[Rfam]
RNA sequence: CCACCUGUGCCAUCAGGUGAAUCUACGGGCAUGAAUAAAGAGCUGCCCAGACAAUGUAACGAAGGUGGUGUUGCCAUCGGGGAGUCAAUCGUGAGAAACGCUCCCUCCUGAAAGUCUUAAUUCGGGUAAGUGC
Numbered sequence: 001c002c003a004c005c006u007g008u009g010c011c012a013u014c015a016g017g018u019g020a021a022u023c024u025a026c027g028g029g030c031a032u033g034a035a036u037a038a039a040g041a042g043c044u045g046c047c048c049a050g051a052c053a054a055u056g057u058a059a060c061g062a063a064g065g066u067g068g069u070g071u072u073g074c075c076a077u078c079g080g081g082g083a084g085u086c087a088a089u090c091g092u093g094a095g096a097a098a099c100g101c102u103c104c105c106u107c108c109u110g111a112a113a114g115u116c117u118u119a120a121u122u123c124g125g126g127u128a129a130g131u132g133c
Stems, first nucleotide, its partner, number of pairs: 002019006027048005032039001064078005080105004089096002107126006
RNA: Group II catalytic intron D1-D4-7
Organism: Colwellia sp. C1TZA3